RNA sequence: GAUUUCAGCUGAAAAAGUCAUGAACAUAAAAGUUGUAGAACUAAUCAAGAUAUAUAACUUUUAUUUUGGUCAUUUGUUCAUCCGACGAAGUGAUAGUAACAUUGUCCACAGAAUUUACAUAUAUGUCUUAUAGUUUAUGAAACUGUAAGAGAGAUAUAUAAAAUCUAUGGACAAUGUUACUAUUGCUUUGUCGGAUGAACAAAUGACUAAAAUAAAAGAUGUAGAUCUCGAUGAGUUCUACAACUUUGUUGUUGAUGACUUUUUCAUUUGAAAUG
Numbered sequence: 001g002a003u004u005u006c007a008g009c010u011g012a013a014a015a016a017g018u019c020a021u022g023a024a025c026a027u028a029a030a031a032g033u034u035g036u037a038g039a040a041c042u043a044a045u046c047a048a049g050a051u052a053u054a055u056a057a058c059u060u061u062u063a064u065u066u067u068g069g070u071c072a073u074u075u076g077u078u079c080a081u082c083c084g085a086c087g088a089a090g091u092g093a094u095a096g097u098a099a100c101a102u103u104g105u106c107c108a109c110a111g112a113a114u115u116u117a118c119a120u121a122u123a124u125g126u127c128u129u130a131u132a133g134u135u136u137a138u139g140a141a142a143c144u145g146u147a148a149g150a151g152a153g154a155u156a157u158a159u160a161a162a163a164u165c166u167a168u169g170g171a172c173a174a175u176g177u178u179a180c181u182a183u184u185g186c187u188u189u190g191u192c193g194g195a196u197g198a199a200c201a202a203a204u205g206a207c208u209a210a211a212a213u214a215a216a217a218g219a220u221g222u223a224g225a226u227c228u229c230g231a232u233g234a235g236u237u238c239u240a241c242a243a244c245u246u247u248g249u250u251g252u253u254g255a256u257g258a259c260u261u262u263u264u265c266a267u268u269u270g271a272a273a274u275g
Stems, first nucleotide, its partner, number of pairs: 014262008023253002026250001030246013044232003048228004053223001055221002058218010069207007077199005083193010094182006101175008110166003114162002117159001119157004131145006
Annotation: Rfam assigns this 275-nucleotide RNA sequence from Miscanthus lutarioriparius to the family "MIR821 microRNA precursor family". The base pairs follow the family's consensus structure, which was predicted with RNAalifold. Rfam links the family to the GO terms RISC complex and miRNA-mediated post-transcriptional gene silencing.